[Rfam]
RNA sequence: UAAUAUCAUGAAAGUCAAAGCUCAUGGUCUUGCAGGUCUUUUUGGUCUGCAAUGAUUGAGGGUUU
Numbered sequence: 001u002a003a004u005a006u007c008a009u010g011a012a013a014g015u016c017a018a019a020g021c022u023c024a025u026g027g028u029c030u031u032g033c034a035g036g037u038c039u040u041u042u043u044g045g046u047c048u049g050c051a052a053u054g055a056u057u058g059a060g061g062g063u064u065u
Stems, first nucleotide, its partner, number of pairs: 018065006031051006
About this RNA
A member of the RNA family "Streptococcus sRNA Spd-sr37" from Streptococcus pluranimalium, 65 nucleotides long. For this family Rfam cites "Identification and characterization of noncoding small RNAs in Streptococcus pneumoniae serotype 2 strain D39" (Tsui et al., J Bacteriol, 2010). The family's consensus secondary structure was predicted with WAR. It is annotated as a small RNA. Taxonomically the source falls in Streptococcus (Bacteria, Bacillati, Bacillota, Streptococcaceae).